[Rfam]
RNA sequence: GAAGUAAACCCAUAUCGAUUUCAUAUAGUUUCGAUAAUACGGAUCGAAAGUAUCUACUGGAGUACCUUAAAUAUUCCAUGCUAUGAAAUCAUUCUUUUCUUUU
Numbered sequence: 001g002a003a004g005u006a007a008a009c010c011c012a013u014a015u016c017g018a019u020u021u022c023a024u025a026u027a028g029u030u031u032c033g034a035u036a037a038u039a040c041g042g043a044u045c046g047a048a049a050g051u052a053u054c055u056a057c058u059g060g061a062g063u064a065c066c067u068u069a070a071a072u073a074u075u076c077c078a079u080g081c082u083a084u085g086a087a088a089u090c091a092u093u094c095u096u097u098u099c100u101u102u103u
Stems, first nucleotide, its partner, number of pairs: 018089008029049007058078007
RNA: Purine riboswitch aptamer